[Rfam]
RNA sequence: UCGGUGUGUUCAGAGCAGGCAUCUCGCAAACUAUAGACUGCCUGUUUACACCACACCGCAGAGCAAUGAGUCAGGAAUGCAGGCAGGGUAUAGUGUGCCUGGCUGCCACUUUACUGACCCUACAAUA
Numbered sequence: 001u002c003g004g005u006g007u008g009u010u011c012a013g014a015g016c017a018g019g020c021a022u023c024u025c026g027c028a029a030a031c032u033a034u035a036g037a038c039u040g041c042c043u044g045u046u047u048a049c050a051c052c053a054c055a056c057c058g059c060a061g062a063g064c065a066a067u068g069a070g071u072c073a074g075g076a077a078u079g080c081a082g083g084c085a086g087g088g089u090a091u092a093g094u095g096u097g098c099c100u101g102g103c104u105g106c107c108a109c110u111u112u113a114c115u116g117a118c119c120c121u122a123c124a125a126u127a
Stems, first nucleotide, its partner, number of pairs: 002058007013047009022037003068120001072116003077112001080105003084101004
Dot-bracket structure: .(((((((....((((((((((((..........))).)))))))))....))))))).........(...(((..(..(((.((((..........)))).)))......).)))...).......

The record is a 127-nucleotide sequence from Scleropages formosus, which matches "Small nucleolar RNA SNORA11" in Rfam. Gene Ontology terms of the family: RNA processing and nucleolus. By type it is an H/ACA-box small nucleolar RNA. The family's consensus secondary structure was predicted with RNAalifold.